[Rfam]
RNA sequence: UAGGCAUCCGUGAUGACUUCAUUUUAGUUAUCCUUGCACUCUGAUCCUCAGUGAAGAUACUCUUGGGAAGAUAUCGUCUGAGAUGCCU
Numbered sequence: 001u002a003g004g005c006a007u008c009c010g011u012g013a014u015g016a017c018u019u020c021a022u023u024u025u026a027g028u029u030a031u032c033c034u035u036g037c038a039c040u041c042u043g044a045u046c047c048u049c050a051g052u053g054a055a056g057a058u059a060c061u062c063u064u065g066g067g068a069a070g071a072u073a074u075c076g077u078c079u080g081a082g083a084u085g086c087c088u
Stems, first nucleotide, its partner, number of pairs: 002088007

Description
A member of the RNA family "Small nucleolar RNA snoR26" from Asparagus officinalis, 88 nucleotides long. Gene Ontology terms of the family: RNA processing and nucleolus. It is annotated as a C/D-box small nucleolar RNA. A search with the family's covariance model found it, with a score of 73 bits.